[Rfam]
RNA: U11 spliceosomal RNA
Organism: Polypterus senegalus
RNA sequence: AAAAAGGGCUUUUGCUGUGAAUAGCACAGAGAAGGAAUGAUUAUUCGUUUCUUCUUUGCGGAAUCGAAAUCAAGAGAUUCCGGAAGCAUAAUUUUUGCAAAUUCUAACCUUGUUCCCUGCAGGGGUCAAUCUUCCC
Numbered sequence: 001a002a003a004a005a006g007g008g009c010u011u012u013u014g015c016u017g018u019g020a021a022u023a024g025c026a027c028a029g030a031g032a033a034g035g036a037a038u039g040a041u042u043a044u045u046c047g048u049u050u051c052u053u054c055u056u057u058g059c060g061g062a063a064u065c066g067a068a069a070u071c072a073a074g075a076g077a078u079u080c081c082g083g084a085a086g087c088a089u090a091a092u093u094u095u096u097g098c099a100a101a102u103u104c105u106a107a108c109c110u111u112g113u114u115c116c117c118u119g120c121a122g123g124g125g126u127c128a129a130u131c132u133u134c135c136c
Stems, first nucleotide, its partner, number of pairs: 008087005013026005027058012059082007106133002110129003115125004
Dot-bracket structure: .......((((((((((....)))))((((((((((((........))))))))))))(((((((..........))))))))))))..................((..(((..((((...)))).)))..))...